[Rfam]
RNA sequence: ACCCUGCCGGGCGACUGGCGUCACGCGGAGCACCGCGGGGGAGCCCGGCCUCGCGCAUGGCCGCUCGCCUGGGCCGGCCCG
Number, nucleotide and partner (000 for none) at each position: 001a000002c000003c000004c000005u000006g049007c048008c047009g046010g045011g044012c043013g000014a000015c040016u039017g069018g068019c067020g066021u000022c000023a000024c000025g036026c035027g034028g033029a000030g000031c000032a000033c028034c027035g026036c025037g000038g000039g016040g015041g000042a000043g012044c011045c010046c009047g008048g007049c006050c000051u000052c000053g000054c000055g000056c000057a000058u076059g075060g074061c073062c072063g000064c000065u000066c020067g019068c018069c017070u000071g000072g062073g061074c060075c059076g058077g000078c000079c000080c000081g000
A member of the RNA family "ZMP/ZTP riboswitch aptamer (pfl RNA motif)" from Tepidiforma thermophila, 81 nucleotides long. Pairs were carried over by alignment from the consensus structure, which is taken from published work. Its family is annotated with regulation of purine nucleotide biosynthetic process and one-carbon metabolic process in the Gene Ontology.